Shown here is a 195-nucleotide sequence, a member of the family "Lysine riboswitch aptamer". Pairs were carried over by alignment from the consensus structure, which is taken from published work. Riboswitches are metabolite binding domains within certain messenger RNAs that serve as precision sensors for their corresponding targets.
RNA sequence: CAAGCCAGAAGAGGCGCGUCGCCCAGGUAGAGUGUCAGAGGAGCCGUUUCUCCGUUGACGGCACCCGAGGGGGAGCGACGCCGAGGUAGGGUAAUGGCCGGCCAUUAUCGUAUCGACUACAGGGGCUGAAUCCCCUGGGUUGUCACCAGGGGAUCGCCCGCAGGGCGAUCGACAAGGUGGGGCGCUUCUGGGUGU
Numbered sequence: 001c002a003a004g005c006c007a008g009a010a011g012a013g014g015c016g017c018g019u020c021g022c023c024c025a026g027g028u029a030g031a032g033u034g035u036c037a038g039a040g041g042a043g044c045c046g047u048u049u050c051u052c053c054g055u056u057g058a059c060g061g062c063a064c065c066c067g068a069g070g071g072g073g074a075g076c077g078a079c080g081c082c083g084a085g086g087u088a089g090g091g092u093a094a095u096g097g098c099c100g101g102c103c104a105u106u107a108u109c110g111u112a113u114c115g116a117c118u119a120c121a122g123g124g125g126c127u128g129a130a131u132c133c134c135c136u137g138g139g140u141u142g143u144c145a146c147c148a149g150g151g152g153a154u155c156g157c158c159c160g161c162a163g164g165g166c167g168a169u170c171g172a173c174a175a176g177g178u179g180g181g182g183c184g185c186u187u188c189u190g191g192g193u194g195u
Stems, first nucleotide, its partner, number of pairs: 006190006016081007024073001030066001032064005085114004090109007115141004120137006143180005